About this RNA:
A member of the RNA family "U11 spliceosomal RNA" from Phycomyces blakesleeanus, 296 nucleotides long. Taxonomically the source falls in Phycomyces blakesleeanus (Eukaryota, Fungi, Mucoromycotina, Phycomycetaceae). Rfam 15.1 lists 2,595 matches to the family in 1,202 species.

[Rfam]
RNA sequence: AAAAAGGGCGCGUCACAAGUUUGAUGGACGACUCUUUCUUUCUUUCUUUUUUUCUUUUAUUUCUUUUCUUUUUCUUUUCUCUCUCUCUCUUUCUGUCAAUCAGAAAGCAGAGGGGGGGGGGGAGGAGGAGAAAGGAGACAGAGGGAAGAGGGGAGGGAGAUGGAGUUUGAAGUCUUAUGAUGUGACAAGAGUUUUUUAUGAUGACUCUUGCGGUAUGGCAAUCAAGACAUAUCGAGCGCAUAAUUUUUAGCACCGGGUGGCUCAUCUUGGCUUCGCUCUAAAGCCGGAGCUGCCCA
Numbered sequence: 001a002a003a004a005a006g007g008g009c010g011c012g013u014c015a016c017a018a019g020u021u022u023g024a025u026g027g028a029c030g031a032c033u034c035u036u037u038c039u040u041u042c043u044u045u046c047u048u049u050u051u052u053u054c055u056u057u058u059a060u061u062u063c064u065u066u067u068c069u070u071u072u073u074c075u076u077u078u079c080u081c082u083c084u085c086u087c088u089c090u091u092u093c094u095g096u097c098a099a100u101c102a103g104a105a106a107g108c109a110g111a112g113g114g115g116g117g118g119g120g121g122g123a124g125g126a127g128g129a130g131a132a133a134g135g136a137g138a139c140a141g142a143g144g145g146a147a148g149a150g151g152g153g154a155g156g157g158a159g160a161u162g163g164a165g166u167u168u169g170a171a172g173u174c175u176u177a178u179g180a181u182g183u184g185a186c187a188a189g190a191g192u193u194u195u196u197u198a199u200g201a202u203g204a205c206u207c208u209u210g211c212g213g214u215a216u217g218g219c220a221a222u223c224a225a226g227a228c229a230u231a232u233c234g235a236g237c238g239c240a241u242a243a244u245u246u247u248u249a250g251c252a253c254c255g256g257g258u259g260g261c262u263c264a265u266c267u268u269g270g271c272u273u274c275g276c277u278c279u280a281a282a283g284c285c286g287g288a289g290c291u292g293c294c295c296a
Stems, first nucleotide, its partner, number of pairs: 008239004013185005186210008195201002211234007258296003263292002266289001269285004

It scores 56 bits against the family's covariance model.